[Rfam]
RNA sequence: UAAGCGGUGUGUGACUGGCGUAAACAUGGAUAACCAUGAGGGAACACAUGUAAAAGCGGCCGUACGCCUGGGCAAAGUAU
Numbered sequence: 001u002a003a004g005c006g007g008u009g010u011g012u013g014a015c016u017g018g019c020g021u022a023a024a025c026a027u028g029g030a031u032a033a034c035c036a037u038g039a040g041g042g043a044a045c046a047c048a049u050g051u052a053a054a055a056g057c058g059g060c061c062g063u064a065c066g067c068c069u070g071g072g073c074a075a076a077g078u079a080u
Stems, first nucleotide, its partner, number of pairs: 004051002007049006015041002017068005026037004059073003
Description: Rfam assigns this 80-nucleotide RNA from Paenibacillus nasutitermitis to the family "ZMP/ZTP riboswitch aptamer (pfl RNA motif)". The match comes from Rfam's covariance-model search (53 bits). Pairs were carried over by alignment from the consensus structure, which is taken from published work.